RNA sequence: CCUUCUAAGCCUCUCAGCGAUGCUCAAAUGGGAGGGG
Number, nucleotide and partner (000 for none) at each position: 001c036002c035003u034004u033005c032006u031007a000008a024009g023010c022011c000012u000013c000014u000015c000016a000017g000018c000019g000020a000021u000022g010023c009024u008025c000026a000027a000028a000029u000030g000031g006032g005033a004034g003035g002036g001037g000